[Rfam]
RNA sequence: CCGCUUCAGUCAUUGGGGAGUAGCCAGUUCCAGAGGACUUCUGGAAAAUUCGUAUCAACAUACUCGUUUAAAAUAAAACGUGGUACGAAUGCCUAAUCAUCUAAUAAAUUUGAUUUUUUAUAUCAUGCAAACCUCAGGU
Number, nucleotide and partner (000 for none) at each position: 001c000002c000003g000004c000005u000006u000007c000008a000009g000010u000011c000012a000013u000014u000015g000016g000017g000018g000019a000020g000021u000022a000023g000024c000025c000026a000027g000028u046029u045030c044031c043032a042033g000034a000035g000036g000037a000038c000039u000040u000041c000042u032043g031044g030045a029046a028047a000048a090049u089050u088051c087052g086053u085054a084055u083056c082057a081058a000059c000060a000061u000062a000063c000064u000065c080066g079067u078068u077069u076070a000071a000072a000073a000074u000075a000076a069077a068078a067079c066080g065081u057082g056083g055084u054085a053086c052087g051088a050089a049090u048091g000092c000093c000094u000095a000096a000097u000098c000099a000100u000101c000102u000103a000104a000105u000106a000107a000108a000109u000110u000111u000112g000113a000114u000115u000116u000117u000118u000119u000120a000121u000122a000123u000124c000125a000126u000127g000128c000129a000130a000131a000132c000133c000134u000135c000136a000137g000138g000139u000